[Rfam]
RNA sequence: GAAGUCUGAAGGCAAGAAUGAAAUAGUACGAGAGGAACUUUCAUUCGGCGCCACUGGUCUACCGGUUGUCUGACAAGGCAACGCCGGGCAGCUACGCGCCAAGAGAUAAAAGCUGAAAGCAUCUAAGCUUGAAACUCAGCCUGAACAAGAGACUUCAUGAAAGACACGGGUAAAAGACCCGGUUGAUAGGUUCGGGAUGUACGCACGAAGGCAACGACGUGUUCAGUCCGCGAAUACUAAUCGUCUUAAUAA
Numbered sequence: 001g002a003a004g005u006c007u008g009a010a011g012g013c014a015a016g017a018a019u020g021a022a023a024u025a026g027u028a029c030g031a032g033a034g035g036a037a038c039u040u041u042c043a044u045u046c047g048g049c050g051c052c053a054c055u056g057g058u059c060u061a062c063c064g065g066u067u068g069u070c071u072g073a074c075a076a077g078g079c080a081a082c083g084c085c086g087g088g089c090a091g092c093u094a095c096g097c098g099c100c101a102a103g104a105g106a107u108a109a110a111a112g113c114u115g116a117a118a119g120c121a122u123c124u125a126a127g128c129u130u131g132a133a134a135c136u137c138a139g140c141c142u143g144a145a146c147a148a149g150a151g152a153c154u155u156c157a158u159g160a161a162a163g164a165c166a167c168g169g170g171u172a173a174a175a176g177a178c179c180c181g182g183u184u185g186a187u188a189g190g191u192u193c194g195g196g197a198u199g200u201a202c203g204c205a206c207g208a209a210g211g212c213a214a215c216g217a218c219g220u221g222u223u224c225a226g227u228c229c230g231c232g233a234a235u236a237c238u239a240a241u242c243g244u245c246u247u248a249a250u251a252a
Stems, first nucleotide, its partner, number of pairs: 001156007010142004016046008047100005055094003062087005067080005103137003110130005162246004167181004187239003190235005195229003203222005210215001

Archaeal large subunit ribosomal RNA: a 252-nucleotide part of an RNA from Methanospirillum hungatei.